[Rfam]
RNA: Guanidine-II riboswitch aptamer (mini-ykkC)
RNA sequence: AAGUAAGGACGACCUUACCGCUCUAUUGUCAUUCAAGGGACGGCCCUA
Numbered sequence: 001a002a003g004u005a006a007g008g009a010c011g012a013c014c015u016u017a018c019c020g021c022u023c024u025a026u027u028g029u030c031a032u033u034c035a036a037g038g039g040a041c042g043g044c045c046c047u048a
Stems, first nucleotide, its partner, number of pairs: 003018006036047004